[Rfam]
RNA sequence: GGAGACUGAAGUAGAGAACGUGCUUCUACACGCCGCGUGAGUGGUAGACAAGAAAUGCGGGAAAGGGCACACCCGCCGGUUUCC
Number, nucleotide and partner (000 for none) at each position: 001g084002g083003a082004g081005a080006c079007u078008g077009a000010a000011g029012u028013a027014g026015a025016g000017a000018a000019c000020g070021u069022g068023c067024u066025u015026c014027u013028a012029c011030a000031c052032g045033c044034c043035g042036c000037g000038u000039g000040a000041g000042u035043g034044g033045u032046a000047g000048a000049c000050a000051a000052g031053a000054a000055a000056u000057g076058c075059g074060g073061g072062a000063a000064a000065g000066g024067g023068c022069a021070c020071a000072c061073c060074c059075g058076c057077c008078g007079g006080u005081u004082u003083c002084c001
Record summary:
Shown here is an 84-nucleotide RNA, a member of the family "skipping-rope RNA". By type it is a small RNA. The base pairs follow the family's consensus structure, which is taken from published work.